[Rfam]
RNA sequence: UUAGGAGUAAUUCUAUGGAUGAAGGAAGAGGUGUAGCAAAAUCCUUGAGCCUACGAAUAGAAACUUGAUGAGGCUAAAUGGUAUGUGGAUAAGGUUGCUAAACAAACUGAAGUCCUAAUGGUAAACGUAAAACCAAGACAGUAAAUCAAGAGGUUGUGGGAUGAAAGAUUAAUGA
Numbered sequence: 001u002u003a004g005g006a007g008u009a010a011u012u013c014u015a016u017g018g019a020u021g022a023a024g025g026a027a028g029a030g031g032u033g034u035a036g037c038a039a040a041a042u043c044c045u046u047g048a049g050c051c052u053a054c055g056a057a058u059a060g061a062a063a064c065u066u067g068a069u070g071a072g073g074c075u076a077a078a079u080g081g082u083a084u085g086u087g088g089a090u091a092a093g094g095u096u097g098c099u100a101a102a103c104a105a106a107c108u109g110a111a112g113u114c115c116u117a118a119u120g121g122u123a124a125a126c127g128u129a130a131a132a133c134c135a136a137g138a139c140a141g142u143a144a145a146u147c148a149a150g151a152g153g154u155u156g157u158g159g160g161a162u163g164a165a166a167g168a169u170u171a172a173u174g175a
Base pairs, nucleotide, nucleotide: 002015003014004013005012006011031173032172037167041162042161043160044159045158047157048155049154050153051152052151064150065149066148067147068146073142074141075140079136081134084131087115088114089113090112093108094107095106096105

Annotation:
The family of this 175-nucleotide sequence from Firmicutes bacterium CAG:345 is "Group II catalytic intron D1-D4-3". NCBI's taxonomy places the organism under Bacteria, Bacillati, Bacillota. Rfam's curators write: Group II introns are found in rRNA, tRNA and mRNA of organelles in fungi, plants and protists, and also in mRNA in bacteria. Rfam links the family to the GO term Group II intron splicing. The base pairs follow the family's consensus structure.